[Rfam]
This 374-nucleotide sequence from Paucibacter sp. KBW04 belongs to the Rfam family "Bacterial RNase P class A".
The family's RNA type in Rfam is ribozyme.
The match comes from Rfam's covariance-model search (205 bits).
The family's consensus secondary structure is taken from published work.
NCBI's taxonomy places the organism under Bacteria, Betaproteobacteria, Burkholderiales, Sphaerotilaceae, Roseateles.
RNA sequence: GAAGCAAGCUAGACCGCCGCUGGUGCAAGCAUGGAAACAUGGCACUGGAGGAAGGUCCGGACUGCAUAGAGCGGCGUAGCAGCUAACGGCUGUCCGGCGUGAGCCGAGGAUUAGAGCAACAGAGACGAGUCGAUCAAACGUGCGGGGUGUAAGCCCUUGCGGGACUGGAAGCGCAGCCUCCAGGGUCGGGUGAAACGGGCAAUCUCUACGCGCAGCAACACCAAGUAGGCCAGUAUUGAUGCGGCUCGCAGAGCUGGCGGGUAGGUGGCACCGAGCCGGGCAGUGAUGCCCGGCCAAGAGGAAUGGCGGUCACGGCGCGGUCUUCGCAAGAAGGCCGCGCUGCACAGAAUCCGGCCUAUCGGCUUGCUUCACAC
Numbered sequence: 001g002a003a004g005c006a007a008g009c010u011a012g013a014c015c016g017c018c019g020c021u022g023g024u025g026c027a028a029g030c031a032u033g034g035a036a037a038c039a040u041g042g043c044a045c046u047g048g049a050g051g052a053a054g055g056u057c058c059g060g061a062c063u064g065c066a067u068a069g070a071g072c073g074g075c076g077u078a079g080c081a082g083c084u085a086a087c088g089g090c091u092g093u094c095c096g097g098c099g100u101g102a103g104c105c106g107a108g109g110a111u112u113a114g115a116g117c118a119a120c121a122g123a124g125a126c127g128a129g130u131c132g133a134u135c136a137a138a139c140g141u142g143c144g145g146g147g148u149g150u151a152a153g154c155c156c157u158u159g160c161g162g163g164a165c166u167g168g169a170a171g172c173g174c175a176g177c178c179u180c181c182a183g184g185g186u187c188g189g190g191u192g193a194a195a196c197g198g199g200c201a202a203u204c205u206c207u208a209c210g211c212g213c214a215g216c217a218a219c220a221c222c223a224a225g226u227a228g229g230c231c232a233g234u235a236u237u238g239a240u241g242c243g244g245c246u247c248g249c250a251g252a253g254c255u256g257g258c259g260g261g262u263a264g265g266u267g268g269c270a271c272c273g274a275g276c277c278g279g280g281c282a283g284u285g286a287u288g289c290c291c292g293g294c295c296a297a298g299a300g301g302a303a304u305g306g307c308g309g310u311c312a313c314g315g316c317g318c319g320g321u322c323u324u325c326g327c328a329a330g331a332a333g334g335c336c337g338c339g340c341u342g343c344a345c346a347g348a349a350u351c352c353g354g355c356c357u358a359u360c361g362g363c364u365u366g367c368u369u370c371a372c373a374c
Stems, first nucleotide, its partner, number of pairs: 001370010011359001012311007020048007028040001053357003057354005062215004069247004074211005079093005094108001095106004109206002114204002116200002219267004229258006240250003275294008